[Rfam]
RNA sequence: AAUUAUCGUCACCCUGCGUACAAACUGCUCGCAAACCAAGACCUAUAGGCAGUAUAAUACUUCGUCUUUCUAUCCAGUAGUGAGGGAUUACUGGAAAUAAGUUUCGCA
Numbered sequence: 001a002a003u004u005a006u007c008g009u010c011a012c013c014c015u016g017c018g019u020a021c022a023a024a025c026u027g028c029u030c031g032c033a034a035a036c037c038a039a040g041a042c043c044u045a046u047a048g049g050c051a052g053u054a055u056a057a058u059a060c061u062u063c064g065u066c067u068u069u070c071u072a073u074c075c076a077g078u079a080g081u082g083a084g085g086g087a088u089u090a091c092u093g094g095a096a097a098u099a100a101g102u103u104u105c106g107c108a
Base pairs, nucleotide, nucleotide: 014052015051016050017049019047020046038068039067040066041065042064073095074094075093076092077091078090079089
This 108-nucleotide sequence belongs to the Rfam family "PhotoRC-II RNA". Pairs were carried over by alignment from the consensus structure, which is taken from published work. Rfam classes the family as a cis-regulatory element.